The family of this 76-nucleotide RNA from Phytomonas sp. Hart1 is "Trypanosomatid snoRNA TB11Cs4H1". The family has 5 seed sequences and 162 matches in Rfam 15.1.
[Rfam]
RNA sequence: UAAUCUUGAUCUGUCUGGCACCUUGUCUGUACUAUUAUUUUCAAUGACGAUGCUGUGCUCGAAAGUUCAAGAAAGA
Numbered sequence: 001u002a003a004u005c006u007u008g009a010u011c012u013g014u015c016u017g018g019c020a021c022c023u024u025g026u027c028u029g030u031a032c033u034a035u036u037a038u039u040u041u042c043a044a045u046g047a048c049g050a051u052g053c054u055g056u057g058c059u060c061g062a063a064a065g066u067u068c069a070a071g072a073a074a075g076a
Base pairs, nucleotide, nucleotide: 004072005071006070007069008068009067017059018058019057023050024049025048026047027046

The source organism's lineage runs through Eukaryota, Discoba, Euglenozoa, Trypanosomatida and Phytomonas. A reference for the family is Liang et al. (2005), "A genome-wide analysis of C/D and H/ACA-like small nucleolar RNAs in Trypanosoma brucei reveals a trypanosome-specific pattern of rRNA modification", RNA.